Background:
Rfam assigns this 81-nucleotide RNA sequence from Cnephaeus nilssonii to the family "mir-574 microRNA precursor family". The family has 6 seed sequences and 4,084 matches in Rfam 15.1. The family's consensus secondary structure was predicted with RNAalifold. Gene Ontology terms of the family: miRNA-mediated post-transcriptional gene silencing and RISC complex. On this family, see Lui et al., Cancer Res 2007: "Patterns of known and novel small RNAs in human cervical cancer". Taxonomically the source falls in Cnephaeus (Eukaryota, Deuterostomia, Dipnotetrapodomorpha, Laurasiatheria).
[Rfam]
RNA sequence: AGAGAGAGAGAGAGAGGUAGGGUCUGAUCUGCAGCCUUUGUGGCAGCUGUUGAUCAGCUGUUACCUCUAUCUUUCUCUCCG
Numbered sequence: 001a002g003a004g005a006g007a008g009a010g011a012g013a014g015a016g017g018u019a020g021g022g023u024c025u026g027a028u029c030u031g032c033a034g035c036c037u038u039u040g041u042g043g044c045a046g047c048u049g050u051u052g053a054u055c056a057g058c059u060g061u062u063a064c065c066u067c068u069a070u071c072u073u074u075c076u077c078u079c080c081g
Base pairs, nucleotide, nucleotide: 008073009072010071011070013068014067015066016065017064018063019062020061022059024057025056026055027054028053029052032049033048034047035046